[Rfam]
RNA sequence: ACCUGCAUUCACAAGGGGCUGAGGUCUCGCCCGGGACUUGGUCAUUGAUAGUGCAGGGAGAGGAGCUCCGAAAGCGUUUCCCGUGUUCGGUGGGUUCAGUCCCGUCCCUCCCAAACCCUGUAGCUUCUUGUCC
Numbered sequence: 001a002c003c004u005g006c007a008u009u010c011a012c013a014a015g016g017g018g019c020u021g022a023g024g025u026c027u028c029g030c031c032c033g034g035g036a037c038u039u040g041g042u043c044a045u046u047g048a049u050a051g052u053g054c055a056g057g058g059a060g061a062g063g064a065g066c067u068c069c070g071a072a073a074g075c076g077u078u079u080c081c082c083g084u085g086u087u088c089g090g091u092g093g094g095u096u097c098a099g100u101c102c103c104g105u106c107c108c109u110c111c112c113a114a115a116c117c118c119u120g121u122a123g124c125u126u127c128u129u130g131u132c133c
Stems, first nucleotide, its partner, number of pairs: 002057008014046002017043005023038004068130001070128001072126004085116003089112001090110001092108003
Shown here is a 133-nucleotide RNA sequence from Pelecanoides urinatrix, a member of the family "Small nucleolar RNA SNORA71". Rfam's curators write: The members of this family belong to the H/ACA class of snoRNAs which bind a number of proteins (including dyskerin, Gar1p and Nop10p) to form snoRNP complexes. This class of snoRNAs are thought to guide the sites of modification of uridines to pseudouridines by forming direct base pairing interactions with substrate RNAs. This family includes U71 (SNORA71), ACA39 (SNORA39) and ACA60 (SNORA60). U71 and ACA60 are predicted to guide the pseudouridylation of U406 and U1004 in 18S rRNA respectively. Taxonomically the source falls in Pelecanoides (Eukaryota, Vertebrata, Tetrapoda, Theropoda). Rfam classes the family as an H/ACA-box small nucleolar RNA. Pairs were carried over by alignment from the consensus structure, which was predicted with PFOLD. For this family Rfam cites "The family of box ACA small nucleolar RNAs is defined by an evolutionarily conserved secondary structure and ubiquitous sequence elements essential for RNA accumulation" (Ganot et al., Genes Dev, 1997).